[Rfam]
RNA sequence: GAGUUACCUCUUUGUUUGUUUUGAUUAAAGAUUCAGCACCUUUAUCAAAACGGGUAACUCUCUACUUUUCAAGAAGAUGUGUCAGAUCUUGUCUGAACUAAUUCAGAUAGUGUUUCCAACUACUCUAUUUGGAUCUCAUCCCUAAUACACUUAAAGCGCUUUUAUAGCCUUCCAGAGCUAAGCUUUGAAG
Numbered sequence: 001g002a003g004u005u006a007c008c009u010c011u012u013u014g015u016u017u018g019u020u021u022u023g024a025u026u027a028a029a030g031a032u033u034c035a036g037c038a039c040c041u042u043u044a045u046c047a048a049a050a051c052g053g054g055u056a057a058c059u060c061u062c063u064a065c066u067u068u069u070c071a072a073g074a075a076g077a078u079g080u081g082u083c084a085g086a087u088c089u090u091g092u093c094u095g096a097a098c099u100a101a102u103u104c105a106g107a108u109a110g111u112g113u114u115u116c117c118a119a120c121u122a123c124u125c126u127a128u129u130u131g132g133a134u135c136u137c138a139u140c141c142c143u144a145a146u147a148c149a150c151u152u153a154a155a156g157c158g159c160u161u162u163u164a165u166a167g168c169c170u171u172c173c174a175g176a177g178c179u180a181a182g183c184u185u186u187g188a189a190g
Stems, first nucleotide, its partner, number of pairs: 001060007009053002018051008027043001029041002061188002067133003074126001076125002081098002083095005100121001102119002151181003158178005164171001
RNA: Proteobacterial sRNA psRNA2